[Rfam]
RNA sequence: CGCGCGGCAGGACGGAAAGACCCCGGGACCUUUACUAUAGCUUGACAUUGGUAUCCGAAUUAGCUUGUGUAGGAUAGGUGGGAGCCGGUGAAGUCCGUACGCCAGUACGGGUGGAGGCAAUCUUGAAAUACCACUCUGGUUGAUUUGGGUAUCUAACUUCGGACCGUUAUCCGGUUCAGGGACAGUGUCUGGUGGGUAGUUUAACUGGGGCGGUUGCCUCCUAAAAGGUAACGGAGGCGCCCAAAGGUUCCCUCAGCCUGGUUGGCAAUCAGGUGUUGAGUGCAAGUACACAAGGGAGCUUGACUGUGAGACUGACAGGUCGAGCAGGGACGAAAGUCGGGACUAGUGAUCCGGCACUUGCGAGUGGAAGCGGUGUCGCUCAACGGAUAAAAGGUACCCCGGGGAUAACAGGCUGAUCUUCCCCAAGAGUCCAUAUCGACGGGAUGGUUUGGCACCUCGAUGUCGGCUCGUCGCAUCCUGGGGCUGUAGCAGGUCCCAAGGGUUGGGCUGUUCGCCCAUUAAAGCGGUACGCGAGCUGGGUUUAGAACGUCGUGAGACAGUUCGGUCCCUAUCCGCCGUGCGCGUA
Numbered sequence: 001c002g003c004g005c006g007g008c009a010g011g012a013c014g015g016a017a018a019g020a021c022c023c024c025g026g027g028a029c030c031u032u033u034a035c036u037a038u039a040g041c042u043u044g045a046c047a048u049u050g051g052u053a054u055c056c057g058a059a060u061u062a063g064c065u066u067g068u069g070u071a072g073g074a075u076a077g078g079u080g081g082g083a084g085c086c087g088g089u090g091a092a093g094u095c096c097g098u099a100c101g102c103c104a105g106u107a108c109g110g111g112u113g114g115a116g117g118c119a120a121u122c123u124u125g126a127a128a129u130a131c132c133a134c135u136c137u138g139g140u141u142g143a144u145u146u147g148g149g150u151a152u153c154u155a156a157c158u159u160c161g162g163a164c165c166g167u168u169a170u171c172c173g174g175u176u177c178a179g180g181g182a183c184a185g186u187g188u189c190u191g192g193u194g195g196g197u198a199g200u201u202u203a204a205c206u207g208g209g210g211c212g213g214u215u216g217c218c219u220c221c222u223a224a225a226a227g228g229u230a231a232c233g234g235a236g237g238c239g240c241c242c243a244a245a246g247g248u249u250c251c252c253u254c255a256g257c258c259u260g261g262u263u264g265g266c267a268a269u270c271a272g273g274u275g276u277u278g279a280g281u282g283c284a285a286g287u288a289c290a291c292a293a294g295g296g297a298g299c300u301u302g303a304c305u306g307u308g309a310g311a312c313u314g315a316c317a318g319g320u321c322g323a324g325c326a327g328g329g330a331c332g333a334a335a336g337u338c339g340g341g342a343c344u345a346g347u348g349a350u351c352c353g354g355c356a357c358u359u360g361c362g363a364g365u366g367g368a369a370g371c372g373g374u375g376u377c378g379c380u381c382a383a384c385g386g387a388u389a390a391a392a393g394g395u396a397c398c399c400c401g402g403g404g405a406u407a408a409c410a411g412g413c414u415g416a417u418c419u420u421c422c423c424c425a426a427g428a429g430u431c432c433a434u435a436u437c438g439a440c441g442g443g444a445u446g447g448u449u450u451g452g453c454a455c456c457u458c459g460a461u462g463u464c465g466g467c468u469c470g471u472c473g474c475a476u477c478c479u480g481g482g483g484c485u486g487u488a489g490c491a492g493g494u495c496c497c498a499a500g501g502g503u504u505g506g507g508c509u510g511u512u513c514g515c516c517c518a519u520u521a522a523a524g525c526g527g528u529a530c531g532c533g534a535g536c537u538g539g540g541u542u543u544a545g546a547a548c549g550u551c552g553u554g555a556g557a558c559a560g561u562u563c564g565g566u567c568c569c570u571a572u573c574c575g576c577c578g579u580g581c582g583c584g585u586a
Stems, first nucleotide, its partner, number of pairs: 001582008010574003014569002022403006028395005034200004041192002044189004050153016067136001077135005084118003093112008157180003161177006203215004216238006239384001241341002247299006253279002256274006280289002304327004310321003329338003352378007360371002412453003416450001417447002420444004427437002464539001465537004469531001470528005477502002480497006504518005545563004549558003
The family of this 586-nucleotide part of an RNA from Micromonospora inyonensis is "Bacterial large subunit ribosomal RNA". A reference for the family is Yusupov et al. (2001), "Crystal structure of the ribosome at 5.5 A resolution", Science. The match comes from Rfam's covariance-model search (2802 bits).